[Rfam]
RNA sequence: GUUGCUUUUUUGAAAGGCGAAUGACCAUUCUAAAAGUUGGUCAGCCAUAUCGAGAAGCAUAUAUAAAGAAUGUAUUGCUAGUUUUAAACAACAUAAUGUUCUUCUAUUGCAUUGUGUUACCUGUCACCUGGUAAAUUU
Numbered sequence: 001g002u003u004g005c006u007u008u009u010u011u012g013a014a015a016g017g018c019g020a021a022u023g024a025c026c027a028u029u030c031u032a033a034a035a036g037u038u039g040g041u042c043a044g045c046c047a048u049a050u051c052g053a054g055a056a057g058c059a060u061a062u063a064u065a066a067a068g069a070a071u072g073u074a075u076u077g078c079u080a081g082u083u084u085u086a087a088a089c090a091a092c093a094u095a096a097u098g099u100u101c102u103u104c105u106a107u108u109g110c111a112u113u114g115u116g117u118u119a120c121c122u123g124u125c126a127c128c129u130g131g132u133a134a135a136u137u138u
Stems, first nucleotide, its partner, number of pairs: 003059006016046003022043005077132005083126001090118003094114005
A member of the RNA family "small nucleolar RNA snoR137" from Camellia sinensis, 138 nucleotides long. Its family is annotated with nucleolus and RNA processing in the Gene Ontology. It scores 62 bits against the family's covariance model. It is annotated as an H/ACA-box small nucleolar RNA.